[Rfam]
RNA: 7SK RNA
Organism: Astyanax mexicanus
RNA sequence: GGGUGUGAGGGCGAUCUGGCUGCGACAUCUGUUACCCCAUUGAUCGCUAGGGUUGAUUCGGCUGAUCUGGCUGGCUAGGCGGGUGUCCCCUUCCUCCCUCACCGCUCCAUGUGUGUCCCUCCCGAGGCUCCGCGCUCGGUGGAAGAGGACAGGCUCCCCGGCGGACAUCGUUGGUAUACGAGUAGCUGAGUACUCCCCUGCUAGAACCUUCAAACAAGCUCAAGGCCCAUUUGUAGGAGAAACGUAGGAAGUCAAGCUCCAAGACUUCAGACACAUCCAAAUGUGGCACUGCACGUGGCAGUCUGCCUUCCUUU
Numbered sequence: 001g002g003g004u005g006u007g008a009g010g011g012c013g014a015u016c017u018g019g020c021u022g023c024g025a026c027a028u029c030u031g032u033u034a035c036c037c038c039a040u041u042g043a044u045c046g047c048u049a050g051g052g053u054u055g056a057u058u059c060g061g062c063u064g065a066u067c068u069g070g071c072u073g074g075c076u077a078g079g080c081g082g083g084u085g086u087c088c089c090c091u092u093c094c095u096c097c098c099u100c101a102c103c104g105c106u107c108c109a110u111g112u113g114u115g116u117c118c119c120u121c122c123c124g125a126g127g128c129u130c131c132g133c134g135c136u137c138g139g140u141g142g143a144a145g146a147g148g149a150c151a152g153g154c155u156c157c158c159c160g161g162c163g164g165a166c167a168u169c170g171u172u173g174g175u176a177u178a179c180g181a182g183u184a185g186c187u188g189a190g191u192a193c194u195c196c197c198c199u200g201c202u203a204g205a206a207c208c209u210u211c212a213a214a215c216a217a218g219c220u221c222a223a224g225g226c227c228c229a230u231u232u233g234u235a236g237g238a239g240a241a242a243c244g245u246a247g248g249a250a251g252u253c254a255a256g257c258u259c260c261a262a263g264a265c266u267u268c269a270g271a272c273a274c275a276u277c278c279a280a281a282u283g284u285g286g287c288a289c290u291g292c293a294c295g296u297g298g299c300a301g302u303c304u305g306c307c308u309u310c311c312u313u314u
Stems, first nucleotide, its partner, number of pairs: 001108003005102007013093002018090002024087010035074002037070003042067004046062003120165002122139004127135002140161001142159001147157003185257003193251002197248005208239004214234005279314003283309001285307003288302005